Rfam assigns this 113-nucleotide sequence from Medicago truncatula to the family "MIR2593 microRNA precursor family". Its family is annotated with RISC complex and miRNA-mediated post-transcriptional gene silencing in the Gene Ontology.
RNA sequence: AUAUAAGCAAAAUUGACUUUUUAGGUUCAUUCAUUUAAUGAUGUAUGUUGUUCAUAUUAUAAACCACAUACAUCAUUAAAUGAAUGAAUCUAAAAAGUCAAUUUUACUUAUAU
Numbered sequence: 001a002u003a004u005a006a007g008c009a010a011a012a013u014u015g016a017c018u019u020u021u022u023a024g025g026u027u028c029a030u031u032c033a034u035u036u037a038a039u040g041a042u043g044u045a046u047g048u049u050g051u052u053c054a055u056a057u058u059a060u061a062a063a064c065c066a067c068a069u070a071c072a073u074c075a076u077u078a079a080a081u082g083a084a085u086g087a088a089u090c091u092a093a094a095a096a097g098u099c100a101a102u103u104u105u106a107c108u109u110a111u112a113u
Base pairs, nucleotide, nucleotide: 002112003111004110005109006108007107009105010104011103012102013101014100015099016098017097018096019095020094021093022092023091024090026088027087028086029085030084031083032082033081034080035079036078037077038076039075040074041073042072043071048066050064051063